[Rfam]
RNA sequence: GGUUUUCGAUAAGCGUCCACCUCCAUGUGGUGAAAACUGGGCAACGUUGUAAUCAACAGCGGCUAAGAACAUUUG
Numbered sequence: 001g002g003u004u005u006u007c008g009a010u011a012a013g014c015g016u017c018c019a020c021c022u023c024c025a026u027g028u029g030g031u032g033a034a035a036a037c038u039g040g041g042c043a044a045c046g047u048u049g050u051a052a053u054c055a056a057c058a059g060c061g062g063c064u065a066a067g068a069a070c071a072u073u074u075g
Base pairs, nucleotide, nucleotide: 001038002037003036004035005034006033007032019031020030021029045061046060047059048058049057
RNA: HDV ribozyme from F. prausnitzii